[Rfam]
RNA sequence: GUACUGCAAGGAUGAUUUAUGAAAUUUUCACAUGUCAGACUUCAGAGGUCUUGGAAACAAGGUCUAUGAGAAGACAUUUCAUUUUCUGAGCAUAC
Numbered sequence: 001g002u003a004c005u006g007c008a009a010g011g012a013u014g015a016u017u018u019a020u021g022a023a024a025u026u027u028u029c030a031c032a033u034g035u036c037a038g039a040c041u042u043c044a045g046a047g048g049u050c051u052u053g054g055a056a057a058c059a060a061g062g063u064c065u066a067u068g069a070g071a072a073g074a075c076a077u078u079u080c081a082u083u084u085u086c087u088g089a090g091c092a093u094a095c
Stems, first nucleotide, its partner, number of pairs: 001095002005092003047064006
The family of this 95-nucleotide RNA sequence from Papaver nudicaule is "Small nucleolar RNA R64/Z200 family". Its family is annotated with RNA processing and nucleolus in the Gene Ontology. By type it is a C/D-box small nucleolar RNA. Lineage of the source: Eukaryota > Streptophytina > Embryophyta > Tracheophyta > Papaver. A search with the family's covariance model found it, with a score of 63 bits.